[Rfam]
RNA sequence: UAAGUUGGCAAGGCAAUCGCUGCUGUGUUCACGUGUUUUAACAUACGGGCACAGGGGAGGAAAGUCCGGGCUCCACAGGACAUGGUGCCAGGUAACGCCUGGGAAGCGUGAGCUUACGACCAGUGCAACAGAAAGUAUACCGCCAGCAAUGGUAAGGGUGAAAUGGUGCGGUAAGAGCGCACCGCGUUUCUAGUAAUAGAAAUGGCAGUGUAAACUCCACCAGGAGCAAGAUCAAAUAGGCCCUCUUUAUGUGGUCCGCAUAGAGGGCGGGUUGAUUGCUUGAGCCAGUAAGCGAUUACUGGCCUAGAGGAAUGAUUGCCACUGCUUUGCAGUACAGAACCCGGCUUAUUGCCAGCUUACUGA
Numbered sequence: 001u002a003a004g005u006u007g008g009c010a011a012g013g014c015a016a017u018c019g020c021u022g023c024u025g026u027g028u029u030c031a032c033g034u035g036u037u038u039u040a041a042c043a044u045a046c047g048g049g050c051a052c053a054g055g056g057g058a059g060g061a062a063a064g065u066c067c068g069g070g071c072u073c074c075a076c077a078g079g080a081c082a083u084g085g086u087g088c089c090a091g092g093u094a095a096c097g098c099c100u101g102g103g104a105a106g107c108g109u110g111a112g113c114u115u116a117c118g119a120c121c122a123g124u125g126c127a128a129c130a131g132a133a134a135g136u137a138u139a140c141c142g143c144c145a146g147c148a149a150u151g152g153u154a155a156g157g158g159u160g161a162a163a164u165g166g167u168g169c170g171g172u173a174a175g176a177g178c179g180c181a182c183c184g185c186g187u188u189u190c191u192a193g194u195a196a197u198a199g200a201a202a203u204g205g206c207a208g209u210g211u212a213a214a215c216u217c218c219a220c221c222a223g224g225a226g227c228a229a230g231a232u233c234a235a236a237u238a239g240g241c242c243c244u245c246u247u248u249a250u251g252u253g254g255u256c257c258g259c260a261u262a263g264a265g266g267g268c269g270g271g272u273u274g275a276u277u278g279c280u281u282g283a284g285c286c287a288g289u290a291a292g293c294g295a296u297u298a299c300u301g302g303c304c305u306a307g308a309g310g311a312a313u314g315a316u317u318g319c320c321a322c323u324g325c326u327u328u329g330c331a332g333u334a335c336a337g338a339a340c341c342c343g344g345c346u347u348a349u350u351g352c353c354a355g356c357u358u359a360c361u362g363a
Stems, first nucleotide, its partner, number of pairs: 001359011012320007020057002023054008062347003066344005071226004078257004083222005088102005103117001104115004118217002123215002125211003140157002142153004165183006184206001185204008230277004240268006248262005284303008
Dot-bracket structure: ((((((((((((((((((.((.((((((((................)))))))).))....[[[.[[[[[((((...[[[[.((((((((((.....)))))(((((....)))).)((...(((((............((((((....))))..)).......((((((.......))))))(((((((((....)))))))).)..)))..)))))))))))))...((((......((((((..(((((.]]]]))))))))))).....))))......((((((((....))))))))..........)))))))...................]]]]]]]].)))))))))))....
A member of the RNA family "Bacterial RNase P class A" from Anaerobiospirillum thomasii, 363 nucleotides long. By type it is a ribozyme. A search with the family's covariance model found it, with a score of 329 bits. From the family's description: Ribonuclease P (RNase P) is a ubiquitous endoribonuclease, found in archaea, bacteria and eukarya as well as chloroplasts and mitochondria.